[Rfam]
RNA sequence: AUCAGCUUGAAAUAGUUUGCGAUUAUCUUUAUUAACUUUCGGAACGUAUAGUUAAUGCCCCAACCGGGGAGGGUGUGGAGAAAGCUUCGCUCUCGAUGAAGCUCCCUGCAAGCGUUGGGGUAACACCAUGUCGCAUGGUCCCCGAGCGAGAGGGGAGCAAAUGCUCCGUCUAUGACCUUGGGGCAACCCCGACAUGGGACAGCCCCGAACGGUCAGCCAUCCCGAGGUGGCGCGAGCCUGCGAUGAGGGAUGGUGUUAGCUUCGGGGGACAUUCUG
Numbered sequence: 001a002u003c004a005g006c007u008u009g010a011a012a013u014a015g016u017u018u019g020c021g022a023u024u025a026u027c028u029u030u031a032u033u034a035a036c037u038u039u040c041g042g043a044a045c046g047u048a049u050a051g052u053u054a055a056u057g058c059c060c061c062a063a064c065c066g067g068g069g070a071g072g073g074u075g076u077g078g079a080g081a082a083a084g085c086u087u088c089g090c091u092c093u094c095g096a097u098g099a100a101g102c103u104c105c106c107u108g109c110a111a112g113c114g115u116u117g118g119g120g121u122a123a124c125a126c127c128a129u130g131u132c133g134c135a136u137g138g139u140c141c142c143c144g145a146g147c148g149a150g151a152g153g154g155g156a157g158c159a160a161a162u163g164c165u166c167c168g169u170c171u172a173u174g175a176c177c178u179u180g181g182g183g184c185a186a187c188c189c190c191g192a193c194a195u196g197g198g199a200c201a202g203c204c205c206c207g208a209a210c211g212g213u214c215a216g217c218c219a220u221c222c223c224g225a226g227g228u229g230g231c232g233c234g235a236g237c238c239u240g241c242g243a244u245g246a247g248g249g250a251u252g253g254u255g256u257u258a259g260c261u262u263c264g265g266g267g268g269a270c271a272u273u274c275u276g
Stems, first nucleotide, its partner, number of pairs: 057121008071106003075102002126197007134146001136144003203267006210259001217253007229238002
HgcG RNA (Pab40): a 276-nucleotide RNA sequence from Geoglobus ahangari. The HgcG ncRNA gene was identified computationally in AT-rich hyperthermophiles. The genes were named hgcA through hgcG ('high GC'). A search with the family's covariance model found it, with a score of 111 bits. A reference for the family is Klein et al. (2002), "Noncoding RNA genes identified in AT-rich hyperthermophiles", Proc Natl Acad Sci U S A. By type it is an H/ACA-box small nucleolar RNA.